[Rfam]
RNA sequence: GCGGCAGUUUAUGGUUUGAUAAACAGGAAAGUGCUAGGGUGACCUUGCGUAAUCCAGUCCUCUGGAUUUUGAGUGGCUCCUAUCCACUCUGUUUGACGCCUCCCUGUUAGAACUGAGCCGCGGGCAUUCCGCGGCUCUUUUUUU
Numbered sequence: 001g002c003g004g005c006a007g008u009u010u011a012u013g014g015u016u017u018g019a020u021a022a023a024c025a026g027g028a029a030a031g032u033g034c035u036a037g038g039g040u041g042a043c044c045u046u047g048c049g050u051a052a053u054c055c056a057g058u059c060c061u062c063u064g065g066a067u068u069u070u071g072a073g074u075g076g077c078u079c080c081u082a083u084c085c086a087c088u089c090u091g092u093u094u095g096a097c098g099c100c101u102c103c104c105u106g107u108u109a110g111a112a113c114u115g116a117g118c119c120g121c122g123g124g125c126a127u128u129c130c131g132c133g134g135c136u137c138u139u140u141u142u143u144u
Base pairs, nucleotide, nucleotide: 001048002047003046004045005014015042016041052067053066054065055064071089072088073087074086075085076084095108096107097106098105115137116136117135118134119133120132121131122130123129
RNA: Alphaproteobacterial sRNA BjrC1505
Organism: Parvibaculum sedimenti